The record is a 90-nucleotide sequence from Anopheles sinensis, which matches "mir-276 microRNA precursor family" in Rfam.
A reference for the family is Li et al. (2009), "Direct sequencing and expression analysis of a large number of miRNAs in Aedes aegypti and a multi-species survey of novel mosquito miRNAs", BMC Genomics.
Rfam 15.1 lists 200 matches to the family in 170 species.
The family's consensus secondary structure was predicted with RNAalifold.
Its family is annotated with miRNA-mediated post-transcriptional gene silencing and RISC complex in the Gene Ontology.
The organism belongs to Myzorhynchus, within Eukaryota.

RNA sequence: CCAUAGACAAACCACCAGCGAGGUAUAGAGUUCCUAUGUUCCUUUCGCUAGCCAUAGGAACUUCAUACCGUGCUCUUGGAUUGAUCUGAU
Numbered sequence: 001c002c003a004u005a006g007a008c009a010a011a012c013c014a015c016c017a018g019c020g021a022g023g024u025a026u027a028g029a030g031u032u033c034c035u036a037u038g039u040u041c042c043u044u045u046c047g048c049u050a051g052c053c054a055u056a057g058g059a060a061c062u063u064c065a066u067a068c069c070g071u072g073c074u075c076u077u078g079g080a081u082u083g084a085u086c087u088g089a090u
Base pairs, nucleotide, nucleotide: 012079013078014077017074018073019072020071022069023068024067025066026065028063029062030061031060032059033058034057035056036055037054